[Rfam]
RNA sequence: CCAAGGAGGUGGAGGCUGGGGACAGCCUCAUGGAGGUGGCUGG
Numbered sequence: 001c002c003a004a005g006g007a008g009g010u011g012g013a014g015g016c017u018g019g020g021g022a023c024a025g026c027c028u029c030a031u032g033g034a035g036g037u038g039g040c041u042g043g
Stems, first nucleotide, its partner, number of pairs: 001033003005029002
Rfam assigns this 43-nucleotide RNA from Amblysomus hottentotus to the family "Prion pseudoknot". The family has 148 seed sequences and 421 matches in Rfam 15.1. Taxonomically the source falls in Amblysomus (Eukaryota, Deuterostomia, Vertebrata, Afrotheria). Gene Ontology term of the family: translation. From the family's description: This family represents a predicted pseudoknot structure found in prion protein mRNA. It has been suggested that the family has a possible effect in prion protein translation. Rfam's curators put it in the seed alignment.